[Rfam]
RNA sequence: GGGAAGUUCUCAGAGCAGGGGGCCCAAAGAAUAGCUCCUCCGUUUAUAAGGUACCCACUAAUAACUUAUGGUCUUUUGUGAGGAAGAAAACAAAAAUGUGUGGCCUUCUUGUGAAUAAAUGUCCUAAAUGU
Numbered sequence: 001g002g003g004a005a006g007u008u009c010u011c012a013g014a015g016c017a018g019g020g021g022g023c024c025c026a027a028a029g030a031a032u033a034g035c036u037c038c039u040c041c042g043u044u045u046a047u048a049a050g051g052u053a054c055c056c057a058c059u060a061a062u063a064a065c066u067u068a069u070g071g072u073c074u075u076u077u078g079u080g081a082g083g084a085a086g087a088a089a090a091c092a093a094a095a096a097u098g099u100g101u102g103g104c105c106u107u108c109u110u111g112u113g114a115a116u117a118a119a120u121g122u123c124c125u126a127a128a129u130g131u
Base pairs, nucleotide, nucleotide: 002056003055006052007051008050013045014044015043016042018040019039020038021037022035023034070124071123073121077117078116079115083112085106086105090101091100092099

Source information: This 131-nucleotide RNA from Dipodomys ordii belongs to the Rfam family "Small nucleolar RNA SNORA11". The literature on the family includes a 2005 paper in Nucleic Acids Res by Gu et al., "A novel experimental approach for systematic identification of box H/ACA snoRNAs from eukaryotes". A search with the family's covariance model found it, with a score of 70 bits. It is annotated as an H/ACA-box small nucleolar RNA. Lineage of the source: Eukaryota > Opisthokonta > Euteleostomi > Rodentia > Dipodomys.